[Rfam]
RNA sequence: AAAACAAAGCAGAAGCACCCGCUUCUCGCCUUAGUAGACAAAUGUCGCUGGGCUAGAUAUAAAAGAUGAUAUCUUGCGUAAUGCAAGUUCGGAUAUUUAUAGGCGGGUUCAUAUAGAACUCGUCUAUUUUUCUGCUG
Numbered sequence: 001a002a003a004a005c006a007a008a009g010c011a012g013a014a015g016c017a018c019c020c021g022c023u024u025c026u027c028g029c030c031u032u033a034g035u036a037g038a039c040a041a042a043u044g045u046c047g048c049u050g051g052g053c054u055a056g057a058u059a060u061a062a063a064a065g066a067u068g069a070u071a072u073c074u075u076g077c078g079u080a081a082u083g084c085a086a087g088u089u090c091g092g093a094u095a096u097u098u099a100u101a102g103g104c105g106g107g108u109u110c111a112u113a114u115a116g117a118a119c120u121c122g123u124c125u126a127u128u129u130u131u132c133u134g135c136u137g
Base pairs, nucleotide, nucleotide: 011026012025013024014023015022016021028053029052030051034048035047038045039044102124103123104122105121106120107119108118109117110116
Dot-bracket structure: ..........((((((....)))))).(((...((..((....)).))..)))................................................(((((((((.....))))))))).............
Background: This 137-nucleotide sequence from Carnobacterium divergens belongs to the Rfam family "Ribosomal protein L20 leader". Taxonomically the source falls in Carnobacterium divergens (Bacteria, Bacillota, Carnobacteriaceae, Carnobacterium). On this family, see Zengel and Lindahl, Prog Nucleic Acid Res Mol Biol 1994: "Diverse mechanisms for regulating ribosomal protein synthesis in Escherichia coli". It is annotated as a cis-regulatory leader. Gene Ontology term of the family: regulation of gene expression.